[Rfam]
RNA sequence: CAACGUUCUCAGGGCGGGGUGAAAUUCCCCACCGGCGGUGAUGGUGGCUCGCGCUGCCCAGCCCGCGAGCGCCUGCCGCCAGUGCCCCCAUCGGGCCCGCGUGGCAGGGUCAGCAGAUCCGGUGUGAAUCCGGGGCCGACGGUCACAGUCCGGAUGAAAGAGAACACGC
Numbered sequence: 001c002a003a004c005g006u007u008c009u010c011a012g013g014g015c016g017g018g019g020u021g022a023a024a025u026u027c028c029c030c031a032c033c034g035g036c037g038g039u040g041a042u043g044g045u046g047g048c049u050c051g052c053g054c055u056g057c058c059c060a061g062c063c064c065g066c067g068a069g070c071g072c073c074u075g076c077c078g079c080c081a082g083u084g085c086c087c088c089c090a091u092c093g094g095g096c097c098c099g100c101g102u103g104g105c106a107g108g109g110u111c112a113g114c115a116g117a118u119c120c121g122g123u124g125u126g127a128a129u130c131c132g133g134g135g136c137c138g139a140c141g142g143u144c145a146c147a148g149u150c151c152g153g154a155u156g157a158a159a160g161a162g163a164a165c166a167c168g169c
Base pairs, nucleotide, nucleotide: 005165006164007163008162009161010160017029018028019027031149032148033138034137035066036065037064038063061136062135069114070113118134119133120132121131122130140152141151142150
Shown here is a 169-nucleotide sequence from Burkholderiales bacterium PBB6, a member of the family "FMN riboswitch aptamer (RFN element)". The match comes from Rfam's covariance-model search (101 bits). The source organism's lineage runs through Bacteria, Pseudomonadati, Pseudomonadota, Betaproteobacteria and Burkholderiales. Its family is annotated with FMN binding in the Gene Ontology.